RNA sequence: UAUUUCUGAGAUCCAGAGAGCCCAACUGUUUCUUUCCCCGGUAAUAAACUUCAACACGACUAUCACCGGGUAUGAAUCAGUUAGGCUCUUCUGGUAUCUU
Number, nucleotide and partner (000 for none) at each position: 001u000002a000003u000004u000005u000006c000007u000008g000009a000010g000011a000012u000013c000014c000015a000016g090017a089018g088019a087020g086021c085022c084023c000024a082025a081026c080027u079028g078029u000030u076031u075032c074033u000034u072035u000036c070037c069038c000039c068040g000041g066042u065043a000044a063045u062046a061047a000048a000049c000050u000051u000052c000053a000054a000055c000056a000057c000058g000059a000060c000061u046062a045063u044064c000065a042066c041067c000068g039069g037070g036071u000072a034073u000074g032075a031076a030077u000078c028079a027080g026081u025082u024083a000084g022085g021086c020087u019088c018089u017090u016091c000092u000093g000094g000095u000096a000097u000098c000099u000100u000
Shown here is a 100-nucleotide RNA sequence from Caenorhabditis remanei, a member of the family "mir-36 microRNA precursor family". The organism belongs to Caenorhabditis, within Eukaryota. It is one of the family's seed sequences. Its Rfam clan is "mir-36 clan".